[Rfam]
Nucleotides: 400
Base pairs, nucleotide, nucleotide: 001396002395003394004393005392006391007390008389009388010387011385012342013341014340015339016338017337018336020049021048023046024045025044026043054383055382056381058380059379060378061377062376063226064225065224066223070277071276072275073274075222076221077220078219079218080094081093082092083091084090095109096107097106098105099104110217111216115215116214117211118210119209132156133155134152135151136150137149138148139147140146164182165181166180167179168178169177184206185204186203187202188201189200190199191198192197230299231298232297233296257290258289259288260287261286262285269281270280271279272278306325307324308323309322310321311320312319313318
Number, partner (000 for none) and nucleotide at each position: 001396c002395g003394a004393g005392u006391u007390g008389g009388c010387c011385g012342g013341g014340c015339g016338a017337c018336c019000g020049c021048g022000c023046c024045g025044c026043c027000g028000c029000g030000c031000c032000c033000c034000g035000u036000g037000a038000g039000g040000g041000c042000a043026g044025g045024c046023g047000c048021c049020g050000a051000g052000g053000a054383a055382a056381g057000u058380c059379c060378g061377g062376a063226c064225u065224c066223c067000g068000c069000a070277g071276g072275g073274c074000a075222g076221g077220g078219u079218g080094g081093u082092u083091g084090u085000u086000a087000a088000c089000g090084g091083c092082a093081a094080c095109c096107c097106g098105g099104g100000g101000u102000g103000a104099c105098c106097c107096g108000c109095g110217g111216g112000a113000c114000a115215g116214u117211g118210c119209c120000a121000c122000a123000g124000a125000a126000a127000a128000c129000a130000g131000a132156c133155c134152g135151c136150c137149c138148c139147g140146c141000g142000a143000u144000a145000a146140g147139c148138g149137g150136g151135g152134u153000a154000a155133g156132g157000g158000u159000g160000a161000a162000a163000c164182g165181g166180u167179g168178g169177u170000g171000u172000a173000a174000g175000a176000g177169a178168c179167c180166a181165c182164c183000a184206g185204c186203g187202u188201c189200c190199c191198g192197g193000g194000c195000g196000a197192c198191c199190g200189g201188g202187a203186c204185g205000g206184c207000u208000a209119g210118g211117u212000a213000a214116a215115c216111c217110c218079c219078a220077c221076c222075c223066g224065g225064a226063g227000c228000a229000a230299g231298a232297c233296c234000a235000a236000g237000a238000g239000g240000g241000g242000g243000u244000c245000a246000c247000g248000c249000g250000c251000c252000c253000c254000u255000g256000c257290g258289c259288a260287g261286g262285c263000g264000u265000u266000c267000g268000a269281g270280g271279g272278c273000g274073g275072c276071c277070c278272g279271c280270c281269c282000g283000a284000u285262g286261c287260c288259u289258g290257c291000g292000g293000g294000u295000a296233g297232g298231u299230c300000g301000c302000u303000u304000g305000a306325g307324c308323c309322u310321g311320c312319c313318g314000g315000c316000g317000a318313c319312g320311g321310c322309a323308g324307g325306c326000c327000g328000a329000g330000a331000u332000g333000g334000a335000u336018g337017g338016u339015c340014g341013c342012u343000c344000a345000u346000c347000g348000c349000g350000g351000c352000g353000c354000c355000g356000a357000g358000a359000g360000g361000u362000g363000c364000c365000g366000c367000g368000g369000g370000a371000c372000a373000g374000a375000a376062u377061c378060c379059g380058g381056c382055u383054u384000a385011c386000a387010g388009g389008c390007c391006a392005a393004c394003u395002c396001g397000u398000c399000c400000g
The record is a 400-nucleotide sequence from Prauserella marina, which matches "Bacterial RNase P class A" in Rfam. A search with the family's covariance model found it, with a score of 281 bits. NCBI's taxonomy places the organism under Bacteria, Bacillati, Pseudonocardiales, Pseudonocardiaceae, Prauserella.